[Rfam]
RNA sequence: GGGGAAAACACUUAGAAUCCCCGUGGACUAGAGUGUGAAUAGCAACGUCUUUGGCCGGACGUCGUGGUUCGGGAAUC
Dot-bracket structure: (((((............))))).............(((((.((.((((((......)))))).)).)))))......
A member of the RNA family "L13-Bacteroidia ribosomal protein leader", 77 nucleotides long. The sequence is in the family's curated seed alignment. A reference for the family is Eckert and Weinberg (2020), "Discovery of 20 novel ribosomal leader candidates in bacteria and archaea", BMC Microbiol. The family's RNA type in Rfam is cis-regulatory leader.